[Rfam]
RNA sequence: GUGUCAUGAUCAUUGUUGACCGUUCAUAUAAUCCCUACAAUUGCUUUGCAGCUUAUGUGAGGAUUAUACGAUGGUCAAUAGAGACCUUUGACAU
Numbered sequence: 001g002u003g004u005c006a007u008g009a010u011c012a013u014u015g016u017u018g019a020c021c022g023u024u025c026a027u028a029u030a031a032u033c034c035c036u037a038c039a040a041u042u043g044c045u046u047u048g049c050a051g052c053u054u055a056u057g058u059g060a061g062g063a064u065u066a067u068a069c070g071a072u073g074g075u076c077a078a079u080a081g082a083g084a085c086c087u088u089u090g091a092c093a094u
Base pairs, nucleotide, nucleotide: 001094002093003092004091005090006089008086010084011083013081014080015079016078017077018076019075020074021073022072023071024070027068028067029066030065031064032063033062034061036059037058038057039056043052
RNA: MIR2587 microRNA precursor family
Organism: Medicago truncatula